[Rfam]
RNA sequence: GCGUAGGUAGUAUAAUGGUUAUUAUUUCGGUUUCCCAUUGUCUGGCCCGGUGAAUACUGGGAGUCAAGCCCGUAAAUAACUUUACGUACCGAGGAACCGGGUUCGAUUCCCGGCCUACGCA
Numbered sequence: 001g002c003g004u005a006g007g008u009a010g011u012a013u014a015a016u017g018g019u020u021a022u023u024a025u026u027u028c029g030g031u032u033u034c035c036c037a038u039u040g041u042c043u044g045g046c047c048c049g050g051u052g053a054a055u056a057c058u059g060g061g062a063g064u065c066a067a068g069c070c071c072g073u074a075a076a077u078a079a080c081u082u083u084a085c086g087u088a089c090c091g092a093g094g095a096a097c098c099g100g101g102u103u104c105g106a107u108u109c110c111c112g113g114c115c116u117a118c119g120c121a
Stems, first nucleotide, its partner, number of pairs: 001120007010025003027092005097113005

Rfam assigns this 121-nucleotide sequence from Ceratobasidium sp. AG-Ba to the family "tRNA".
The family's consensus secondary structure is taken from published work.
From the family's description: Transfer RNA (tRNA) molecules are approximately 80 nucleotides in length. Their secondary structure includes four short double-helical elements and three loops (D, anti-codon, and T loops). Further hydrogen bonds mediate the characteristic L-shaped molecular structure. tRNAs have two regions of fundamental functional importance: the anti-codon, which is responsible for specific mRNA codon recognition, and the 3' end, to which the tRNAs corresponding amino acid is attached (by aminoacyl-tRNA synthetases). tRNAs cope with the degeneracy of the genetic code in two manners: having more than one tRNA (with a specific anti-codon) for a particular amino acid; and 'wobble' base-pairing, i.e. permitting non-standard base-pairing at the 3rd anti-codon position.
Its family is annotated with triplet codon-amino acid adaptor activity in the Gene Ontology.
By type it is a transfer RNA.
NCBI's taxonomy places the organism under Eukaryota, Dikarya, Basidiomycota, Agaricomycotina, Ceratobasidium.
The match comes from Rfam's covariance-model search (49 bits).